[Rfam]
RNA sequence: UCGGACUGAAAAUGGUCUCAGGUGUAAUAGUGGUCUGAGGUCAGAUACCUGAGCCUAAAGCAAUGAGGUACGUUAAGCUUAUCGCCUGCUCACCUGUUGGCAGGGUGAUAAAACCCAUGUGCCUACAUAA
Numbered sequence: 001u002c003g004g005a006c007u008g009a010a011a012a013u014g015g016u017c018u019c020a021g022g023u024g025u026a027a028u029a030g031u032g033g034u035c036u037g038a039g040g041u042c043a044g045a046u047a048c049c050u051g052a053g054c055c056u057a058a059a060g061c062a063a064u065g066a067g068g069u070a071c072g073u074u075a076a077g078c079u080u081a082u083c084g085c086c087u088g089c090u091c092a093c094c095u096g097u098u099g100g101c102a103g104g105g106u107g108a109u110a111a112a113a114c115c116c117a118u119g120u121g122c123c124u125a126c127a128u129a130a
Stems, first nucleotide, its partner, number of pairs: 006051001008049001010046001013043004021035003067123001069121005079111005087102003

Description: The family of this 130-nucleotide sequence from Sphaeramia orbicularis is "Small nucleolar RNA ACA64". The literature on the family includes a 2006 paper in RNA by Schattner et al., "A computational screen for mammalian pseudouridylation guide H/ACA RNAs". Rfam links the family to the GO terms nucleolus and RNA processing. Rfam classes the family as an H/ACA-box small nucleolar RNA.